[Rfam]
RNA sequence: AUUAUGAGAAUUUUCCGAGUCUAUGCUUCUAAGGGUUAAACUAUGGAGCAUAGACCAUUAGGUAUAAGGAGAAAUCUUUAUGCCUCCCGUGUUUGGAAAGGAAAAUGUUAGUGAGUGGU
Dot-bracket structure: ..((......((((((..(((((((((((...((......))..)))))))))))....(((((((((((....)))))))))))((.......))...))))))......))......
Numbered sequence: 001a002u003u004a005u006g007a008g009a010a011u012u013u014u015c016c017g018a019g020u021c022u023a024u025g026c027u028u029c030u031a032a033g034g035g036u037u038a039a040a041c042u043a044u045g046g047a048g049c050a051u052a053g054a055c056c057a058u059u060a061g062g063u064a065u066a067a068g069g070a071g072a073a074a075u076c077u078u079u080a081u082g083c084c085u086c087c088c089g090u091g092u093u094u095g096g097a098a099a100g101g102a103a104a105a106u107g108u109u110a111g112u113g114a115g116u117g118g119u
Stems, first nucleotide, its partner, number of pairs: 003113002011105006019055011033042002060085011086096002